[Rfam]
RNA sequence: CGACGAGGACGACCUCAUCACCCGCCUCAUCGUCGAGGACGCCCUCA
Numbered sequence: 001c002g003a004c005g006a007g008g009a010c011g012a013c014c015u016c017a018u019c020a021c022c023c024g025c026c027u028c029a030u031c032g033u034c035g036a037g038g039a040c041g042c043c044c045u046c047a
Stems, first nucleotide, its partner, number of pairs: 002019002005016004035046004
The record is a 47-nucleotide sequence from Schaalia hyovaginalis, which matches "Guanidine-II riboswitch aptamer (mini-ykkC)" in Rfam.
Lineage of the source: Bacteria > Bacillati > Actinomycetota > Actinomycetales > Schaalia.
It scores 32 bits against the family's covariance model.
The family has 72 seed sequences and 1,589 matches in Rfam 15.1.
The base pairs follow the family's consensus structure, which is taken from published work.